[Rfam]
RNA sequence: GAAGCAGACCAGAUAGUCGCCGCAGUUUUUUAACUGCGGAGGAAAGUCCGGGCUCCGCAGAACAGGAUGCCGGGUAACUCCCGGGCUGCAUAGUGUUUCUGAUGAAGUACAAUGCAGACAGAAAGUGCCGCAGAAAAUAUACCGCCUGACUACUGAACCUUUGGUUUGGUUGUCAGGUAAGGGUGAAAAGGCGGGGUAAGAGCCCACCGCUUCCAGGGUAACCUGGAGGGCAUGGUAAACCUCAUCCGGAGCAAAGCCAUACAGCAGACGGGUGGUUCGCCCAGAGUCUGCGGGUAGGCUGCAUCAGGCUGCCGGUAACGGCAGUCACAGAUAGAUGGCUAUCCACGACAGAAUCCGGCUUACAGGUCUGCUUCUUUA
Numbered sequence: 001g002a003a004g005c006a007g008a009c010c011a012g013a014u015a016g017u018c019g020c021c022g023c024a025g026u027u028u029u030u031u032a033a034c035u036g037c038g039g040a041g042g043a044a045a046g047u048c049c050g051g052g053c054u055c056c057g058c059a060g061a062a063c064a065g066g067a068u069g070c071c072g073g074g075u076a077a078c079u080c081c082c083g084g085g086c087u088g089c090a091u092a093g094u095g096u097u098u099c100u101g102a103u104g105a106a107g108u109a110c111a112a113u114g115c116a117g118a119c120a121g122a123a124a125g126u127g128c129c130g131c132a133g134a135a136a137a138u139a140u141a142c143c144g145c146c147u148g149a150c151u152a153c154u155g156a157a158c159c160u161u162u163g164g165u166u167u168g169g170u171u172g173u174c175a176g177g178u179a180a181g182g183g184u185g186a187a188a189a190g191g192c193g194g195g196g197u198a199a200g201a202g203c204c205c206a207c208c209g210c211u212u213c214c215a216g217g218g219u220a221a222c223c224u225g226g227a228g229g230g231c232a233u234g235g236u237a238a239a240c241c242u243c244a245u246c247c248g249g250a251g252c253a254a255a256g257c258c259a260u261a262c263a264g265c266a267g268a269c270g271g272g273u274g275g276u277u278c279g280c281c282c283a284g285a286g287u288c289u290g291c292g293g294g295u296a297g298g299c300u301g302c303a304u305c306a307g308g309c310u311g312c313c314g315g316u317a318a319c320g321g322c323a324g325u326c327a328c329a330g331a332u333a334g335a336u337g338g339c340u341a342u343c344c345a346c347g348a349c350a351g352a353a354u355c356c357g358g359c360u361u362a363c364a365g366g367u368c369u370g371c372u373u374c375u376u377u378a
Stems, first nucleotide, its partner, number of pairs: 001374010012343007020039008044361003048358005053251004060280001065247005070084005085119001086117006120242002125240002127236003142182002144178007152170007190208002193205003209231001210229008255300004264291006273283003307326008
Shown here is a 378-nucleotide sequence from Marispirochaeta aestuarii, a member of the family "Bacterial RNase P class A". Gene Ontology terms of the family: dimeric ribonuclease P complex, tRNA processing and ribonuclease P activity. The family's RNA type in Rfam is ribozyme.